The record is a 77-nucleotide sequence from Sodalis-like symbiont of Philaenus spumarius, which matches "tpke11" in Rfam. About the family: In Yersinia located in ICR upstream dnaJ (chaperone)gene. Has temperature responsive RNA structure.
[Rfam]
RNA sequence: CACCGCUGCGGGCAACAGGCACGGGCGUCCGGGAAACUCUGCGCCCGUGCAAGCAUGUUGAGGGCAGGAAGAGACAA
Numbered sequence: 001c002a003c004c005g006c007u008g009c010g011g012g013c014a015a016c017a018g019g020c021a022c023g024g025g026c027g028u029c030c031g032g033g034a035a036a037c038u039c040u041g042c043g044c045c046c047g048u049g050c051a052a053g054c055a056u057g058u059u060g061a062g063g064g065c066a067g068g069a070a071g072a073g074a075c076a077a
Stems, first nucleotide, its partner, number of pairs: 003018001005016001019050009031038002
Gene Ontology term of the family: response to temperature stimulus. Pairs were carried over by alignment from the consensus structure, which was predicted with WAR. Taxonomically the source falls in Sodalis (Bacteria, Pseudomonadati, Pseudomonadota, Gammaproteobacteria).